[Rfam]
RNA sequence: CAAUCCAUGUACGUCGCUAUUUUUCGCUUCUUUUUUUGCUUUAGCGUCUGAUUUCAGGAGGCUUGCGCAUAAGAAAAGAAACGAAAAGUAGCGCCUAAGCCUCCCUUGUGGAGGCUUUUCUUUU
Number, nucleotide and partner (000 for none) at each position: 001c000002a000003a000004u000005c000006c000007a000008u000009g000010u000011a000012c000013g000014u000015c000016g092017c091018u090019a089020u000021u087022u086023u085024u084025c083026g082027c000028u080029u079030c078031u077032u076033u075034u074035u000036u072037u071038g070039c000040u000041u000042u056043a000044g000045c000046g000047u000048c000049u000050g000051a000052u000053u000054u000055c000056a042057g066058g000059a064060g000061g000062c000063u000064u059065g000066c057067g000068c000069a000070u038071a037072a036073g000074a034075a033076a032077a031078g030079a029080a028081a000082c026083g025084a024085a023086a022087a021088g000089u019090a018091g017092c016093g000094c000095c000096u000097a117098a116099g115100c114101c113102u112103c111104c110105c000106u000107u000108g000109u000110g104111g103112a102113g101114g100115c099116u098117u097118u000119u000120c000121u000122u000123u000124u000
Phenylalanine leader peptide: a 124-nucleotide RNA sequence from Serratia symbiotica. Lineage of the source: Bacteria > Pseudomonadota > Yersiniaceae > Serratia > Serratia symbiotica. Rfam 15.1 lists 379 matches to the family in 290 species. Rfam links the family to the GO term cellular amino acid metabolic process. The match comes from Rfam's covariance-model search (72 bits). By type it is a cis-regulatory leader. The literature on the family includes a 1978 paper in Proc Natl Acad Sci U S A by Zurawski et al., "Nucleotide sequence of the leader region of the phenylalanine operon of Escherichia coli". The base pairs follow the family's consensus structure, which was predicted with CMfinder.